[Rfam]
Rfam assigns this 135-nucleotide RNA from Streptococcus hyointestinalis to the family "Ribosomal protein L10 leader". Lineage of the source: Bacteria > Bacillota > Lactobacillales > Streptococcaceae > Streptococcus. By type it is a cis-regulatory leader.
RNA sequence: GGUUUUGAAUAAAACUGACCUAAGACAGUAGGGGAGCGGUGCUCAUAAUAGUCCUACCGAGGCACAAAACGUGAUUUAGAAAUAACGGUUUUGUAUUUUCGUGUCUAGGUGUAGAUACGUUUUUUUGUAUCUAUC
Numbered sequence: 001g002g003u004u005u006u007g008a009a010u011a012a013a014a015c016u017g018a019c020c021u022a023a024g025a026c027a028g029u030a031g032g033g034g035a036g037c038g039g040u041g042c043u044c045a046u047a048a049u050a051g052u053c054c055u056a057c058c059g060a061g062g063c064a065c066a067a068a069a070c071g072u073g074a075u076u077u078a079g080a081a082a083u084a085a086c087g088g089u090u091u092u093g094u095a096u097u098u099u100c101g102u103g104u105c106u107a108g109g110u111g112u113a114g115a116u117a118c119g120u121u122u123u124u125u126u127g128u129a130u131c132u133a134u135c
Stems, first nucleotide, its partner, number of pairs: 028057006034044003100119008
On this family, see Yakhnin et al., Nucleic Acids Res 2015: "Ribosomal protein L10(L12)4 autoregulates expression of the Bacillus subtilis rplJL operon by a transcription attenuation mechanism".